[Rfam]
RNA sequence: CGUACGGGACGGCCCGUAUCGCUUCAGCUUUCGUCGGGGACGGCCCCG
Number, nucleotide and partner (000 for none) at each position: 001c000002g019003u018004a017005c016006g015007g014008g013009a000010c000011g000012g000013c008014c007015c006016g005017u004018a003019u002020c000021g000022c000023u000024u000025c000026a000027g000028c000029u000030u000031u000032c000033g000034u000035c048036g047037g046038g045039g044040a000041c000042g000043g000044c039045c038046c037047c036048g035

Rfam assigns this 48-nucleotide RNA sequence from Candidatus Afipia apatlaquensis to the family "Guanidine-II riboswitch aptamer (mini-ykkC)". The organism belongs to Afipia, within Bacteria. The family's consensus secondary structure is taken from published work.